Group I catalytic intron: a 349-nucleotide RNA sequence from Bacillus sp. FJAT-27231.
The literature on the family includes a 1990 paper in Annu Rev Biochem by Cech, "Self-splicing of group I introns".
The family's consensus secondary structure is taken from published work.
About the family: Group I catalytic introns are large self-splicing ribozymes. They catalyse their own excision from mRNA, tRNA and rRNA precursors in a wide range of organisms. The core secondary structure consists of 9 paired regions (P1-P9).
Gene Ontology term of the family: Group I intron splicing.
RNA sequence: UCAAGGCGUUUUACAACUCUUGAGAUAAUUAGAUAAGAAGGGCGUCUUAUCUGGUAACGGAUAAGAGGAUCACUGGGUGAAUUGCUGGAACUUCCUAAAGCUUCAUCAACCACAACGUAACUGGAAACGGUCAACGUGAAGGUGUGAAAAUGAUGGAGAUGGAACAAUGGAUAAUCAGCAGCCAAGCUCCUGUGAGGAAACUCUGGAGAAGGUUCAACGACUAGAGAAAACGGUCUAAGGUAAAAGCUAUGACUAUGAAUCUCGUAGGGCAGUAAACGCUGUUCGAAGUGCCCAGCCCCUUAUAGAAUAAGGGUGAAGAUAUAGUCUAUUCUGUCACUGAAAGGUACAG
Numbered sequence: 001u002c003a004a005g006g007c008g009u010u011u012u013a014c015a016a017c018u019c020u021u022g023a024g025a026u027a028a029u030u031a032g033a034u035a036a037g038a039a040g041g042g043c044g045u046c047u048u049a050u051c052u053g054g055u056a057a058c059g060g061a062u063a064a065g066a067g068g069a070u071c072a073c074u075g076g077g078u079g080a081a082u083u084g085c086u087g088g089a090a091c092u093u094c095c096u097a098a099a100g101c102u103u104c105a106u107c108a109a110c111c112a113c114a115a116c117g118u119a120a121c122u123g124g125a126a127a128c129g130g131u132c133a134a135c136g137u138g139a140a141g142g143u144g145u146g147a148a149a150a151u152g153a154u155g156g157a158g159a160u161g162g163a164a165c166a167a168u169g170g171a172u173a174a175u176c177a178g179c180a181g182c183c184a185a186g187c188u189c190c191u192g193u194g195a196g197g198a199a200a201c202u203c204u205g206g207a208g209a210a211g212g213u214u215c216a217a218c219g220a221c222u223a224g225a226g227a228a229a230a231c232g233g234u235c236u237a238a239g240g241u242a243a244a245a246g247c248u249a250u251g252a253c254u255a256u257g258a259a260u261c262u263c264g265u266a267g268g269g270c271a272g273u274a275a276a277c278g279c280u281g282u283u284c285g286a287a288g289u290g291c292c293c294a295g296c297c298c299c300u301u302a303u304a305g306a307a308u309a310a311g312g313g314u315g316a317a318g319a320u321a322u323a324g325u326c327u328a329u330u331c332u333g334u335c336a337c338u339g340a341a342a343g344g345u346a347c348a349g
Stems, first nucleotide, its partner, number of pairs: 004047009051060003073295004078290002083180006093171003181213002188206002217327001219326005297313007333347002336345003